[Rfam]
RNA sequence: AAGUGUGAUGAUGAAUGAUUAAUUUCCCUAUUGGUUUGACUGGCCAACAUGAUGGCCCAAAUGCAGAACAAAGUCUGAUCAUCA
Numbered sequence: 001a002a003g004u005g006u007g008a009u010g011a012u013g014a015a016u017g018a019u020u021a022a023u024u025u026c027c028c029u030a031u032u033g034g035u036u037u038g039a040c041u042g043g044c045c046a047a048c049a050u051g052a053u054g055g056c057c058c059a060a061a062u063g064c065a066g067a068a069c070a071a072a073g074u075c076u077g078a079u080c081a082u083c084a
Base pairs, nucleotide, nucleotide: 003082004081005080042057043056044055045054